[Rfam]
RNA sequence: CGAGCGGUCACUCGACGCGAGCACCGAGUCGCUACGGACGGUGACUCGAGACGAGUGACCGGUCG
Number, nucleotide and partner (000 for none) at each position: 001c065002g064003a063004g000005c061006g060007g059008u058009c057010a056011c055012u054013c053014g052015a000016c050017g000018c048019g047020a046021g045022c000023a000024c000025c000026g000027a000028g000029u000030c000031g000032c000033u000034a000035c000036g000037g000038a000039c000040g000041g000042u000043g000044a000045c021046u020047c019048g018049a000050g016051a000052c014053g013054a012055g011056u010057g009058a008059c007060c006061g005062g000063u003064c002065g001
Shown here is a 65-nucleotide RNA from Muromegalovirus muridbeta1, a member of the family "mir-m107-1 microRNA precursor family". The sequence is in the family's curated seed alignment. Pairs were carried over by alignment from the consensus structure, which was predicted with RNAalifold. Its family is annotated with miRNA-mediated post-transcriptional gene silencing and RISC complex in the Gene Ontology.